Shown here is a 124-nucleotide sequence from Daucus carota, a member of the family "small nucleolar RNA snoR126".
The family's consensus secondary structure was predicted with RNAalifold.
A search with the family's covariance model found it, with a score of 44 bits.
On this family, see Chen and Wu, Nucleic Acids Res 2009: "Mining small RNA sequencing data: a new approach to identify small nucleolar RNAs in Arabidopsis".
Its family is annotated with nucleolus and RNA processing in the Gene Ontology.
[Rfam]
RNA sequence: AGGCGAUGAUGAGAAUAAUCAUUUCUCGAUGCUGAAUUCAUGUAUGUAUAUGUAUAAUUUAUUUUGGGUAUUUGUAUGUAUCCAUUGUAAAUCUGAUGACCGAGUUUGUGCGUGUCUGAGCCUC
Numbered sequence: 001a002g003g004c005g006a007u008g009a010u011g012a013g014a015a016u017a018a019u020c021a022u023u024u025c026u027c028g029a030u031g032c033u034g035a036a037u038u039c040a041u042g043u044a045u046g047u048a049u050a051u052g053u054a055u056a057a058u059u060u061a062u063u064u065u066g067g068g069u070a071u072u073u074g075u076a077u078g079u080a081u082c083c084a085u086u087g088u089a090a091a092u093c094u095g096a097u098g099a100c101c102g103a104g105u106u107u108g109u110g111c112g113u114g115u116c117u118g119a120g121c122c123u124c
Stems, first nucleotide, its partner, number of pairs: 001123004
Dot-bracket structure: ((((...................................................................................................................)))).